[Rfam]
RNA sequence: UCUCAUUUAUACGACAUGAUCCCUACCUCUAUCAUGUCCUUACAGCCCCAAAGCUGCGCCAGUGCGAAUAAACUUCAUUAAAACGUG
Numbered sequence: 001u002c003u004c005a006u007u008u009a010u011a012c013g014a015c016a017u018g019a020u021c022c023c024u025a026c027c028u029c030u031a032u033c034a035u036g037u038c039c040u041u042a043c044a045g046c047c048c049c050a051a052a053g054c055u056g057c058g059c060c061a062g063u064g065c066g067a068a069u070a071a072a073c074u075u076c077a078u079u080a081a082a083a084c085g086u087g
Base pairs, nucleotide, nucleotide: 035066036065039062040061041058043056044055045054046053
BsrC: an 87-nucleotide sequence from Alkalibacterium pelagium. A search with the family's covariance model found it, with a score of 55 bits. The 301 nucleotide sequence from Kouji Nakamura has been trimmed to a highly conserved ~85 nucleotide long core to form this family. Pairs were carried over by alignment from the consensus structure, which was predicted with CMfinder. The organism belongs to Alkalibacterium, within Bacteria. By type it is a small RNA. The literature on the family includes a 2008 paper in Gene by Saito et al., "Novel small RNA-encoding genes in the intergenic regions of Bacillus subtilis".